The record is a 99-nucleotide sequence from Mycolicibacterium wolinskyi, which matches "Mycobacterium sRNA Ms_AS-1" in Rfam. Lineage of the source: Bacteria > Bacillati > Mycobacteriales > Mycobacteriaceae > Mycobacterium (subgen. Mycolicibacterium). Pairs were carried over by alignment from the consensus structure. The match comes from Rfam's covariance-model search (87 bits).
RNA sequence: CGUGGGAUUGGGGAUGAAGUGGUUGACGGUCCCGCCCAUCACCGCGAGGGUCCGCUUACCGUCCUGGACCAUCUGCACGCCACGGCUGCGGAACUCCUU
Numbered sequence: 001c002g003u004g005g006g007a008u009u010g011g012g013g014a015u016g017a018a019g020u021g022g023u024u025g026a027c028g029g030u031c032c033c034g035c036c037c038a039u040c041a042c043c044g045c046g047a048g049g050g051u052c053c054g055c056u057u058a059c060c061g062u063c064c065u066g067g068a069c070c071a072u073c074u075g076c077a078c079g080c081c082a083c084g085g086c087u088g089c090g091g092a093a094c095u096c097c098u099u
Stems, first nucleotide, its partner, number of pairs: 006040003010037003015034002019030002022027001044055003080091002083088001